[Rfam]
RNA sequence: UAGUAUCGGUGAAGAUGCCGAUUACCCGCAACGGGACGAAAAGACCCCGUGAACCUUUACUGCAGCUUAGCACUGGGACCGGGCGUGCGAUGUGUAGGAUAGUCAGGAGACAGCGAAGCGGUGACGCCAGUCAUCGUGGAGUCGACGUUGAAAUACUGACCUUUGCACGUUUGGUUUCUAACUCGCAGGAGCGAGGACACUGCUUGGUGGGUAGUUUGACUGGGGUGGUCGCCUCCAAAAGCGUAACGGAGGCUUCUAAAGGUGCGCUCAGGCCGAUUGGUAACCGGCCGUAGAGUGUAAUGGCACAAGCGCGCUUGACUGGGAGACCUACAAGUCGAUCAGGUAGGAAACUAGAGCAUAGUGAUCCGGUGGUUCCGCAUGGAAGGGCCAUCGCUCAAAGGAUAAAAGGUACUCCGGGGAUAACAGGCUGAUCCCUCCCAAGAGCUCAUAUCGACGGAGUGGUUUGGCACCUCGAUGUCGGCUCGUCACAUCCCGGGGCUGGAGAAGGUCCCAAGGGUUAGGCUGUUCGCCUAUUAAAGUGGCACGCGAGCUGGGUUCAGAACGUCGUGAGACAGUUCGGUCUCUAUCUGUUGUGGGCGU
Numbered sequence: 001u002a003g004u005a006u007c008g009g010u011g012a013a014g015a016u017g018c019c020g021a022u023u024a025c026c027c028g029c030a031a032c033g034g035g036a037c038g039a040a041a042a043g044a045c046c047c048c049g050u051g052a053a054c055c056u057u058u059a060c061u062g063c064a065g066c067u068u069a070g071c072a073c074u075g076g077g078a079c080c081g082g083g084c085g086u087g088c089g090a091u092g093u094g095u096a097g098g099a100u101a102g103u104c105a106g107g108a109g110a111c112a113g114c115g116a117a118g119c120g121g122u123g124a125c126g127c128c129a130g131u132c133a134u135c136g137u138g139g140a141g142u143c144g145a146c147g148u149u150g151a152a153a154u155a156c157u158g159a160c161c162u163u164u165g166c167a168c169g170u171u172u173g174g175u176u177u178c179u180a181a182c183u184c185g186c187a188g189g190a191g192c193g194a195g196g197a198c199a200c201u202g203c204u205u206g207g208u209g210g211g212u213a214g215u216u217u218g219a220c221u222g223g224g225g226u227g228g229u230c231g232c233c234u235c236c237a238a239a240a241g242c243g244u245a246a247c248g249g250a251g252g253c254u255u256c257u258a259a260a261g262g263u264g265c266g267c268u269c270a271g272g273c274c275g276a277u278u279g280g281u282a283a284c285c286g287g288c289c290g291u292a293g294a295g296u297g298u299a300a301u302g303g304c305a306c307a308a309g310c311g312c313g314c315u316u317g318a319c320u321g322g323g324a325g326a327c328c329u330a331c332a333a334g335u336c337g338a339u340c341a342g343g344u345a346g347g348a349a350a351c352u353a354g355a356g357c358a359u360a361g362u363g364a365u366c367c368g369g370u371g372g373u374u375c376c377g378c379a380u381g382g383a384a385g386g387g388c389c390a391u392c393g394c395u396c397a398a399a400g401g402a403u404a405a406a407a408g409g410u411a412c413u414c415c416g417g418g419g420a421u422a423a424c425a426g427g428c429u430g431a432u433c434c435c436u437c438c439c440a441a442g443a444g445c446u447c448a449u450a451u452c453g454a455c456g457g458a459g460u461g462g463u464u465u466g467g468c469a470c471c472u473c474g475a476u477g478u479c480g481g482c483u484c485g486u487c488a489c490a491u492c493c494c495g496g497g498g499c500u501g502g503a504g505a506a507g508g509u510c511c512c513a514a515g516g517g518u519u520a521g522g523c524u525g526u527u528c529g530c531c532u533a534u535u536a537a538a539g540u541g542g543c544a545c546g547c548g549a550g551c552u553g554g555g556u557u558c559a560g561a562a563c564g565u566c567g568u569g570a571g572a573c574a575g576u577u578c579g580g581u582c583u584c585u586a587u588c589u590g591u592u593g594u595g596g597g598c599g600u
Base pairs, nucleotide, nucleotide: 005022006021007020008019009018025597026596027595028594029593030592031591032590034589035588036587038584039583046418047417048416049415051414052413053410054409055408056407057406059215060214061213062212066207067206069204070203071202072201075178076177077176078175079174080173081172082171083170084169085168086167087166088165089164090163092161102160103159104158105157106156109143110142111141118137119136120135121134122133123132124131125130182195183194184193218230219229220228221227231253232252233251234250235249236248254399256356257355262314263313264312265311266310267309268294269293271289272288273287274286275285295304296303319342320341321340322339325336326335327334344353345352346351367393368392369391370390371389372388373387375386376385427468428467429466431465432462433461435459436458437457438456442452443451479554480552481551482550483549484546485543486542487541488540489539492517493516495512496511497510498509499508500507519533520532521531522530523529560578561577562576563575564573565572566571
Bacterial large subunit ribosomal RNA: a 600-nucleotide part of an RNA from Muribaculaceae bacterium Isolate-110. Rfam links the family to the GO terms ribosome and structural constituent of ribosome. It scores 2743 bits against the family's covariance model. A reference for the family is Yusupov et al. (2001), "Crystal structure of the ribosome at 5.5 A resolution", Science.